[Rfam]
RNA sequence: AAGAGAGGACGACCUCCCCCGAUGCGGGAUCGAUGUUCGGGACGACCCGA
Numbered sequence: 001a002a003g004a005g006a007g008g009a010c011g012a013c014c015u016c017c018c019c020c021g022a023u024g025c026g027g028g029a030u031c032g033a034u035g036u037u038c039g040g041g042a043c044g045a046c047c048c049g050a
Base pairs, nucleotide, nucleotide: 003019005016006015007014008013037050038049039048040047041046
RNA: Guanidine-II riboswitch aptamer (mini-ykkC)
Organism: Qingshengfaniella alkalisoli